[Rfam]
RNA: Group II catalytic intron D1-D4-5
Organism: Niallia circulans
RNA sequence: UACAACUGAUAUACCGAUGUCGGAAAUGAAAGCCGUCACGUUGAGCUGAAACCGACAGUCUGAUACUCCUACAUGCAAGUAUUUGAUAGAAAUACAAGCAUUCUGUAUGGAACUAGGUGAAGUCGGCUGAAUUCAAAUCUGAAGCCACUCUUAUAGAGAAGGUAUGGUUGGAGAUAGGCCGGGACGCUAUAAA
Numbered sequence: 001u002a003c004a005a006c007u008g009a010u011a012u013a014c015c016g017a018u019g020u021c022g023g024a025a026a027u028g029a030a031a032g033c034c035g036u037c038a039c040g041u042u043g044a045g046c047u048g049a050a051a052c053c054g055a056c057a058g059u060c061u062g063a064u065a066c067u068c069c070u071a072c073a074u075g076c077a078a079g080u081a082u083u084u085g086a087u088a089g090a091a092a093u094a095c096a097a098g099c100a101u102u103c104u105g106u107a108u109g110g111a112a113c114u115a116g117g118u119g120a121a122g123u124c125g126g127c128u129g130a131a132u133u134c135a136a137a138u139c140u141g142a143a144g145c146c147a148c149u150c151u152u153a154u155a156g157a158g159a160a161g162g163u164a165u166g167g168u169u170g171g172a173g174a175u176a177g178g179c180c181g182g183g184a185c186g187c188u189a190u191a192a193a
Stems, first nucleotide, its partner, number of pairs: 018057006031047003058185004068117004072109005078102003082098004124181005132172005138162003